[Rfam]
RNA sequence: CAAUGCCAUUUGGUAUCUGACAUGUAGUCUUCUUUUGUGACUAUCUGUCUCGAAAUAUGGCAUAUAAUAAGGGGGAACGGACCUUGCGACAUUGGUGGCUCCUCUGAGAUCCUCCAAUUACUAUAUUGCCGUUUAUAUUU
Numbered sequence: 001c002a003a004u005g006c007c008a009u010u011u012g013g014u015a016u017c018u019g020a021c022a023u024g025u026a027g028u029c030u031u032c033u034u035u036u037g038u039g040a041c042u043a044u045c046u047g048u049c050u051c052g053a054a055a056u057a058u059g060g061c062a063u064a065u066a067a068u069a070a071g072g073g074g075g076a077a078c079g080g081a082c083c084u085u086g087c088g089a090c091a092u093u094g095g096u097g098g099c100u101c102c103u104c105u106g107a108g109a110u111c112c113u114c115c116a117a118u119u120a121c122u123a124u125a126u127u128g129c130c131g132u133u134u135a136u137a138u139u140u
Stems, first nucleotide, its partner, number of pairs: 004062006019049004024044006076133005091118005097112002100109001
RNA: Small nucleolar RNA F1/F2/snoR5a